[Rfam]
RNA: MIR6151 microRNA precursor family
RNA sequence: AGAUGCUGGAUGAGUGUGAGGCGUUGGAUUGAUUUCACUCAAUCCGAGCCCCACAUUCAUCAAGGAUUGGU
Numbered sequence: 001a002g003a004u005g006c007u008g009g010a011u012g013a014g015u016g017u018g019a020g021g022c023g024u025u026g027g028a029u030u031g032a033u034u035u036c037a038c039u040c041a042a043u044c045c046g047a048g049c050c051c052c053a054c055a056u057u058c059a060u061c062a063a064g065g066a067u068u069g070g071u
Base pairs, nucleotide, nucleotide: 004066006064007063009061010060011059012058013057014056015055016054017053018052020050021049022048024047025046026045027044028043029042030041031040032039